Rfam assigns this 130-nucleotide sequence from Nannospalax galili to the family "Small nucleolar RNA SNORA3/SNORA45 family".
By type it is an H/ACA-box small nucleolar RNA.
Rfam links the family to the GO terms nucleolus and RNA processing.
Pairs were carried over by alignment from the consensus structure, which was predicted with RNAalifold.
The match comes from Rfam's covariance-model search (109 bits).
From the family's description: The members of this family belong to the H/ACA class of snoRNAs which are thought to guide the sites of modification of uridines to pseudouridines. This family includes mouse snoMBI-28 and human homologues ACA3 (SNORA3) and ACA3-2 (SNORA45). Both ACA3 and ACA3-2 share the same host gene. MBI-28, ACA3 and ACA3-2 are all predicted to guide the pseudouridylation of residues in 28S rRNA.
Taxonomically the source falls in Nannospalax (Eukaryota, Dipnotetrapodomorpha, Tetrapoda, Eutheria).
Nucleotides: 130
Base pairs, nucleotide, nucleotide: 002059003058004057005056006055008052009051012048013047015046016045017044018043019042020041023038024037025036026035070122071121072120073119074118075117076116082111083110084109085108086107088105089104090103091102
Number, partner (000 for none) and nucleotide at each position: 001000a002059u003058u004057g005056a006055g007000g008052c009051u010000a011000g012048a013047g014000c015046c016045a017044c018043g019042c020041u021000u022000g023038g024037g025036u026035a027000u028000u029000g030000g031000c032000u033000a034000u035026u036025g037024c038023c039000u040000u041020g042019g043018u044017g045016u046015g047013c048012u049000a050000g051009a052008g053000a054000c055006c056005u057004c058003g059002a060000a061000g062000a063000a064000u065000a066000a067000c068000u069000g070122c071121u072120g073119a074118c075117c076116u077000u078000a079000u080000u081000u082111a083110c084109u085108g086107g087000c088105u089104g090103u091102g092000g093000g094000c095000c096000u097000c098000g099000u100000g101000g102091c103090a104089c105088a106000g107086u108085c109084a110083g111082u112000c113000a114000u115000c116076a117075g118074g119073u120072u121071a122070g123000u124000g125000a126000c127000a128000u129000g130000u